[Rfam]
RNA sequence: UAUUUUUGCACUUUGAUAGAAAACCUAUCAUUGCAUAAUAAUUAUUGAAACAAUAUUGGCAUG
Numbered sequence: 001u002a003u004u005u006u007u008g009c010a011c012u013u014u015g016a017u018a019g020a021a022a023a024c025c026u027a028u029c030a031u032u033g034c035a036u037a038a039u040a041a042u043u044a045u046u047g048a049a050a051c052a053a054u055a056u057u058g059g060c061a062u063g
Stems, first nucleotide, its partner, number of pairs: 014030006
Rfam assigns this 63-nucleotide sequence from Psychroflexus salarius to the family "S15-Flavobacteria ribosomal protein leader".
The organism belongs to Psychroflexus, within Bacteria.
It is annotated as a cis-regulatory leader.
A search with the family's covariance model found it, with a score of 68 bits.
The family's consensus secondary structure is taken from published work.